FMN riboswitch aptamer (RFN element): a 169-nucleotide sequence from Sphaerotilus hippei. Pairs were carried over by alignment from the consensus structure, which is taken from published work. Taxonomically the source falls in Sphaerotilus (Bacteria, Pseudomonadota, Betaproteobacteria, Sphaerotilaceae).
RNA sequence: CAGCGUUCUCAGGGCGGGGUGGAAUUCCCCACCGGCGGUGAUGGUGGUGGGGCUGCUCGCGGGCUCACGGCAUGAGCCCGCGAGCGCCCGCAGGCUCAUGCCGGCGGGGUCAGCAGACCCGGUGUGACUCCGGGGCCGACGGUCACAGUCCGGAUGAAAGAGACUGGCC
Numbered sequence: 001c002a003g004c005g006u007u008c009u010c011a012g013g014g015c016g017g018g019g020u021g022g023a024a025u026u027c028c029c030c031a032c033c034g035g036c037g038g039u040g041a042u043g044g045u046g047g048u049g050g051g052g053c054u055g056c057u058c059g060c061g062g063g064c065u066c067a068c069g070g071c072a073u074g075a076g077c078c079c080g081c082g083a084g085c086g087c088c089c090g091c092a093g094g095c096u097c098a099u100g101c102c103g104g105c106g107g108g109g110u111c112a113g114c115a116g117a118c119c120c121g122g123u124g125u126g127a128c129u130c131c132g133g134g135g136c137c138g139a140c141g142g143u144c145a146c147a148g149u150c151c152g153g154a155u156g157a158a159a160g161a162g163a164c165u166g167g168c169c
Stems, first nucleotide, its partner, number of pairs: 004166002007163004017029003031149002033138002035081004084114002118134005140152003